Rfam assigns this 69-nucleotide sequence from Trypanosoma rangeli to the family "Trypanosomatid snoRNA TB10Cs4H2".
It scores 54 bits against the family's covariance model.
A reference for the family is Liang et al. (2005), "A genome-wide analysis of C/D and H/ACA-like small nucleolar RNAs in Trypanosoma brucei reveals a trypanosome-specific pattern of rRNA modification", RNA.
Pairs were carried over by alignment from the consensus structure, which was predicted with WAR.
The source organism's lineage runs through Eukaryota, Metakinetoplastina, Trypanosomatida, Trypanosomatidae and Herpetosoma.

RNA sequence: ACGCCCUCGUCUAACACCUCGUGCUGUGGGUUCCAUUCUCAGCGGGGUGAUUUCAGGGGGCGGAGAGUC
Dot-bracket structure: .(((((((......((((((((...................))))))))......))))))).......
The family's RNA type in Rfam is H/ACA-box small nucleolar RNA.